RNA sequence: CUAGCACUUUCACAGGUCCUCCCCCAGAUCGUGGGGCCAGGAUUUGGUAGCUGGUGCUAAAAUUGAAAACCCUUGCUGAUAUCUUUGCCCUGGGACUGUGUCAGUGGCAACUGUCAAUCGAUGGGACAGAG
Numbered sequence: 001c002u003a004g005c006a007c008u009u010u011c012a013c014a015g016g017u018c019c020u021c022c023c024c025c026a027g028a029u030c031g032u033g034g035g036g037c038c039a040g041g042a043u044u045u046g047g048u049a050g051c052u053g054g055u056g057c058u059a060a061a062a063u064u065g066a067a068a069a070c071c072c073u074u075g076c077u078g079a080u081a082u083c084u085u086u087g088c089c090c091u092g093g094g095a096c097u098g099u100g101u102c103a104g105u106g107g108c109a110a111c112u113g114u115c116a117a118u119c120g121a122u123g124g125g126a127c128a129g130a131g
Base pairs, nucleotide, nucleotide: 003058004057005056006055007054008053013046014045015044017042018041019040020039022036023035024034025033070125071124072123073121074120075119081114082113085110086109087108088107089106090104091103092102093101
The record is a 131-nucleotide RNA sequence from Bos taurus, which matches "Small nucleolar RNA SNORA30/SNORA37 family" in Rfam. A search with the family's covariance model found it, with a score of 114 bits. The members of this family belong to the H/ACA class of snoRNAs that guide the sites of modification of uridines to pseudouridines. This family includes human ACA30 (SNORA30), ACA37 (SNORA37) and the mouse homolog MBI-26. Both ACA37 and ACA30 are predicted to guide the pseudouridylation of residue U4643 of 28S rRNA. The family has 11 seed sequences and 407 matches in Rfam 15.1. Rfam links the family to the GO terms RNA processing and nucleolus. The family's consensus secondary structure was predicted with RNAfold. The literature on the family includes a 2001 paper in EMBO J by Huttenhofer et al., "RNomics: an experimental approach that identifies 201 candidates for novel, small, non-messenger RNAs in mouse". The family's RNA type in Rfam is H/ACA-box small nucleolar RNA.